This 63-nucleotide sequence from Pantoea vagans belongs to the Rfam family "rydB RNA". It scores 58 bits against the family's covariance model. About the family: This family consists of several bacterial sequences from E. coli, Shigella flexneri and Salmonella species. This RNA gene was discovered by an RNA screen between the ydiC and ydiH in E. coli. This gene is only 67 bases in length and is composed of a hairpin like structure. The family's consensus secondary structure was predicted with RNAalifold. Lineage of the source: Bacteria > Gammaproteobacteria > Enterobacterales > Erwiniaceae > Pantoea. For this family Rfam cites "Identification of novel small RNAs using comparative genomics and microarrays" (Wassarman et al., Genes Dev, 2001).

RNA sequence: GUCCCGCACAGAGCUAACGCCUUUAAUGAGCGCCGGAGAUAAGCGCCGGACGGGACUUUCAUC
Numbered sequence: 001g002u003c004c005c006g007c008a009c010a011g012a013g014c015u016a017a018c019g020c021c022u023u024u025a026a027u028g029a030g031c032g033c034c035g036g037a038g039a040u041a042a043g044c045g046c047c048g049g050a051c052g053g054g055a056c057u058u059u060c061a062u063c
Stems, first nucleotide, its partner, number of pairs: 002055004013031003033049004038044001